About this RNA: This 237-nucleotide RNA sequence from Streptomyces sp. ISL-86 belongs to the Rfam family "Streptomyces sRNA 4677". The base pairs follow the family's consensus structure. It scores 92 bits against the family's covariance model. Rfam classes the family as a small RNA. From the family's description: Located in the intergenic region between anti-sigma factor SCO4677 gene and a putative regulatory protein gene SCO4676. scr4677 expression requires the SCO4677 activity and scr4677 sRNA itself seem to affect the levels of the SCO4676-associated transcripts.
RNA sequence: ACCCCCUGCGCCUCGACGCUUCUUUUGCUUGGCAGUACUGAGGGAAAGAACCUGCCCUGCCCCUCCAGCCUCCCCGGACGACCGGCUCACUCACUUGGGUGAAUCGACCCAACUCGACUGGAUUUCAUGCCGGUUGCCUGGCAUAUGCUCACCCCGACAACUCCAGACAUACGACGGCCCCCGGCCGGGACGGCAAUCCCGAUCGAGGGCCUGACCACGAGAAGGCCUCUCUUCCCA
Numbered sequence: 001a002c003c004c005c006c007u008g009c010g011c012c013u014c015g016a017c018g019c020u021u022c023u024u025u026u027g028c029u030u031g032g033c034a035g036u037a038c039u040g041a042g043g044g045a046a047a048g049a050a051c052c053u054g055c056c057c058u059g060c061c062c063c064u065c066c067a068g069c070c071u072c073c074c075c076g077g078a079c080g081a082c083c084g085g086c087u088c089a090c091u092c093a094c095u096u097g098g099g100u101g102a103a104u105c106g107a108c109c110c111a112a113c114u115c116g117a118c119u120g121g122a123u124u125u126c127a128u129g130c131c132g133g134u135u136g137c138c139u140g141g142c143a144u145a146u147g148c149u150c151a152c153c154c155c156g157a158c159a160a161c162u163c164c165a166g167a168c169a170u171a172c173g174a175c176g177g178c179c180c181c182c183g184g185c186c187g188g189g190a191c192g193g194c195a196a197u198c199c200c201g202a203u204c205g206a207g208g209g210c211c212u213g214a215c216c217a218c219g220a221g222a223a224g225g226c227c228u229c230u231c232u233u234c235c236c237a
Stems, first nucleotide, its partner, number of pairs: 007219002010216001018074001087102006119151003176211005182205002187200004221234004